[Rfam]
RNA: mir-203 microRNA precursor family
RNA sequence: GUCUUGUUGAUUAAGUGGUUCUCAACAGUUCAACAGUUCAUUUCCAAAAUUGUGAAAUGUUUAGGACCACUUAACCAAUC
Numbered sequence: 001g002u003c004u005u006g007u008u009g010a011u012u013a014a015g016u017g018g019u020u021c022u023c024a025a026c027a028g029u030u031c032a033a034c035a036g037u038u039c040a041u042u043u044c045c046a047a048a049a050u051u052g053u054g055a056a057a058u059g060u061u062u063a064g065g066a067c068c069a070c071u072u073a074a075c076c077a078a079u080c
Base pairs, nucleotide, nucleotide: 014071015070016069017068018067019066021064022063024061025060026059027058029056030055031054032053